Source information: This 105-nucleotide sequence from Nitrosomonas sp. Nm84 belongs to the Rfam family "Guanidine-I riboswitch aptamer". A search with the family's covariance model found it, with a score of 92 bits. Rfam describes the family as follows. This family represents a conserved RNA structure found upstream of the ykkC and yxkD genes in Bacillus subtilis and related genes in other bacteria. The base pairs follow the family's consensus structure. The organism belongs to Nitrosomonas, within Bacteria. The family has 100 seed sequences and 1,509 matches in Rfam 15.1.
[Rfam]
RNA sequence: UUCAAUGGAAACUAGGGUUCCGGUCGUACAAGAAACGACGUCAGGUCCAAGAGCUUCCGGUCUCGUGCUAACGAGACUCCACGGAGGGAAAAAAGCCCGGGAGAU
Numbered sequence: 001u002u003c004a005a006u007g008g009a010a011a012c013u014a015g016g017g018u019u020c021c022g023g024u025c026g027u028a029c030a031a032g033a034a035a036c037g038a039c040g041u042c043a044g045g046u047c048c049a050a051g052a053g054c055u056u057c058c059g060g061u062c063u064c065g066u067g068c069u070a071a072c073g074a075g076a077c078u079c080c081a082c083g084g085a086g087g088g089a090a091a092a093a094a095g096c097c098c099g100g101g102a103g104a105u
Stems, first nucleotide, its partner, number of pairs: 007058004012053001015048002020045002022042001023039005059078008080100001082103001086098003